[Rfam]
The family of this 96-nucleotide RNA sequence from Elaeis guineensis is "MIR535 microRNA precursor family". Pairs were carried over by alignment from the consensus structure, which was predicted with RNAalifold. For this family Rfam cites "Conservation and divergence of microRNAs and their functions in Euphorbiaceous plants" (Zeng et al., Nucleic Acids Res, 2010). A search with the family's covariance model found it, with a score of 78 bits.
RNA sequence: AUUGUCGGCUGACAACGAGAGAGAGCACGCCGGUCGGCAGUCCUGCACGGUGCCAUGGCUGUGUACCAGCGUGCUCUUUCUCGGUGUCACCCCAGU
Numbered sequence: 001a002u003u004g005u006c007g008g009c010u011g012a013c014a015a016c017g018a019g020a021g022a023g024a025g026c027a028c029g030c031c032g033g034u035c036g037g038c039a040g041u042c043c044u045g046c047a048c049g050g051u052g053c054c055a056u057g058g059c060u061g062u063g064u065a066c067c068a069g070c071g072u073g074c075u076c077u078u079u080c081u082c083g084g085u086g087u088c089a090c091c092c093c094a095g096u
Stems, first nucleotide, its partner, number of pairs: 010089005016083002020079002023076001025074006032067003
Dot-bracket structure: .........(((((.((..((.(.((((((.(((..............................))).)))))).).))..)).))))).......